[Rfam]
This 172-nucleotide sequence from Vallitalea guaymasensis belongs to the Rfam family "Group II catalytic intron D1-D4-3".
Nucleotides: 172
Base pairs, nucleotide, nucleotide: 001016002015003014004013005012006011030170031169037164041159042158043157044156045155046154047150048149049148050147051146063145064144065143066142067141072137073136074135076133077132078131079130080129081128082127083111084110085109086108089104090103091102092101
Number, partner (000 for none) and nucleotide at each position: 001016u002015c003014c004013u005012u006011g007000g008000u009000g010000a011006c012005a013004a014003g015002g016001a017000a018000u019000c020000u021000g022000a023000a024000g025000g026000a027000a028000g029000u030170c031169g032000g033000a034000g035000g036000g037164c038000a039000a040000a041159u042158c043157u044156c045155u046154g047150g048149u049148c050147u051146g052000a053000c054000g055000a056000a057000c058000a059000g060000a061000a062000a063145u064144c065143a066142u067141a068000u069000c070000a071000g072137g073136c074135a075000g076133u077132u078131g079130c080129u081128a082127u083111g084110g085109a086108u087000a088000a089104g090103g091102c092101u093000g094000c095000c096000a097000a098000a099000c100000a101092a102091g103090u104089c105000a106000a107000a108086g109085u110084c111083c112000a113000a114000u115000a116000a117000c118000u119000a120000c121000u122000c123000g124000g125000a126000a127082a128081u129080a130079g131078u132077a133076a134000c135074u136073g137072u138000a139000u140000a141067u142066a143065u144064g145063g146051c147050a148049g149048a150047u151000a152000u153000a154046u155045g156044g157043a158042g159041a160000g161000g162000a163000a164037g165000a166000u167000u168000g169031u170030g171000u172000a
NCBI's taxonomy places the organism under Bacteria, Bacillota, Lachnospirales, Vallitaleaceae, Vallitalea. Rfam describes the family as follows. Group II introns are found in rRNA, tRNA and mRNA of organelles in fungi, plants and protists, and also in mRNA in bacteria. A search with the family's covariance model found it, with a score of 140 bits.